Shown here is a 76-nucleotide sequence from Hermetia illucens, a member of the family "drz-agam-1 ribozyme". The match comes from Rfam's covariance-model search (37 bits). The base pairs follow the family's consensus structure, which is taken from published work. Taxonomically the source falls in Hermetia (Eukaryota, Ecdysozoa, Arthropoda, Eumetabola).
RNA sequence: UGCAAACCCCUACCUCCACCUCCACGUGGUCACCGCUGGGAACUUUUUCUUAACGAAAAGCUGCAGACGGAGAAGG
Numbered sequence: 001u002g003c004a005a006a007c008c009c010c011u012a013c014c015u016c017c018a019c020c021u022c023c024a025c026g027u028g029g030u031c032a033c034c035g036c037u038g039g040g041a042a043c044u045u046u047u048u049c050u051u052a053a054c055g056a057a058a059a060g061c062u063g064c065a066g067a068c069g070g071a072g073a074a075g076g
Base pairs, nucleotide, nucleotide: 009076010075011074013072015070016069018030019029020028042062044060045059046058047057048056049055